[Rfam]
RNA sequence: GGCCUCCUGGUGCUUCCACAGGCUGUGUUCUUAUACUGACUGUACAGAAAUAGGAGGCAGAAUAAACCUACCCCAUAGAGACCUCAGCUCUUUGCUCUGUAUUGUGAACGGGGAGACACUG
Numbered sequence: 001g002g003c004c005u006c007c008u009g010g011u012g013c014u015u016c017c018a019c020a021g022g023c024u025g026u027g028u029u030c031u032u033a034u035a036c037u038g039a040c041u042g043u044a045c046a047g048a049a050a051u052a053g054g055a056g057g058c059a060g061a062a063u064a065a066a067c068c069u070a071c072c073c074c075a076u077a078g079a080g081a082c083c084u085c086a087g088c089u090c091u092u093u094g095c096u097c098u099g100u101a102u103u104g105u106g107a108a109c110g111g112g113g114a115g116a117c118a119c120u121g
Base pairs, nucleotide, nucleotide: 002058003057004056005055006054007053008052019042020041021040025036026035027034028033071113072112073111074110076108085099086098087097
Dot-bracket structure: .(((((((..........(((...((((....))))...))).........)))))))............((((.(........(((.........)))........).))))........

Shown here is a 121-nucleotide RNA sequence from Pipistrellus kuhlii, a member of the family "Small nucleolar RNA SNORA51". Rfam links the family to the GO terms RNA processing and nucleolus. The source organism's lineage runs through Eukaryota, Metazoa, Teleostomi, Boreoeutheria and Pipistrellus. About the family: ACA51 is a member of the H/ACA class of snoRNA that guide the sites of modification of uridines to pseudouridines. The family's RNA type in Rfam is H/ACA-box small nucleolar RNA.